[Rfam]
msiK RNA: a 59-nucleotide RNA sequence from Barrientosiimonas humi. The match comes from Rfam's covariance-model search (57 bits). Taxonomically the source falls in Barrientosiimonas (Bacteria, Bacillati, Micrococcales, Dermacoccaceae). Rfam classes the family as a cis-regulatory element.

RNA sequence: AGGUGAGUUCCAUCACAACGGAUCGUCCGGCACGUUCCUGCCGGUGACGGAAAGUAGGC
Numbered sequence: 001a002g003g004u005g006a007g008u009u010c011c012a013u014c015a016c017a018a019c020g021g022a023u024c025g026u027c028c029g030g031c032a033c034g035u036u037c038c039u040g041c042c043g044g045u046g047a048c049g050g051a052a053a054g055u056a057g058g059c
Base pairs, nucleotide, nucleotide: 009051010050011049013047014046015045027044028043029042030041031040032039